The family of this 145-nucleotide sequence from Acidovorax sp. MR-S7 is "radC RNA". The family's consensus secondary structure is taken from published work.
[Rfam]
RNA sequence: AUGCUGCCCCCAUGCCUUGCUGACAGCCGUCAGCAGCAUCCCAGGUAGCCACGAUCUUCGAGGCUACGGCGCGGUUCCGCCGCGUUGAUCACCCAGCUCGCUCCGCAUCCGUCCGCGAGCGGCCACCAGUCCUGGUGGCGGAUGC
Numbered sequence: 001a002u003g004c005u006g007c008c009c010c011c012a013u014g015c016c017u018u019g020c021u022g023a024c025a026g027c028c029g030u031c032a033g034c035a036g037c038a039u040c041c042c043a044g045g046u047a048g049c050c051a052c053g054a055u056c057u058u059c060g061a062g063g064c065u066a067c068g069g070c071g072c073g074g075u076u077c078c079g080c081c082g083c084g085u086u087g088a089u090c091a092c093c094c095a096g097c098u099c100g101c102u103c104c105g106c107a108u109c110c111g112u113c114c115g116c117g118a119g120c121g122g123c124c125a126c127c128a129g130u131c132c133u134g135g136u137g138g139c140g141g142a143u144g145c
Stems, first nucleotide, its partner, number of pairs: 012039003019034006045067006053090004068086007115145003122139007
Background: The family has 148 seed sequences and 500 matches in Rfam 15.1.